[Rfam]
RNA sequence: AAGGAUAGAAACGGGAGCUUGGAGUGAGCCAGGCUGAGAGGGCGGAGAACUCUGCCGCCGACCGGUUAACCUGAUCUGGAUAAUGCCAGCGCAGGGAUGGACGAAUCGUCCUUU
Numbered sequence: 001a002a003g004g005a006u007a008g009a010a011a012c013g014g015g016a017g018c019u020u021g022g023a024g025u026g027a028g029c030c031a032g033g034c035u036g037a038g039a040g041g042g043c044g045g046a047g048a049a050c051u052c053u054g055c056c057g058c059c060g061a062c063c064g065g066u067u068a069a070c071c072u073g074a075u076c077u078g079g080a081u082a083a084u085g086c087c088a089g090c091g092c093a094g095g096g097a098u099g100g101a102c103g104a105a106u107c108g109u110c111c112u113u114u
Base pairs, nucleotide, nucleotide: 010098012064013063014062017034018033019032020031021030041059042058043057044056045055070095071094072093073092076089077088078087079086
RNA: TPP riboswitch aptamer (THI element)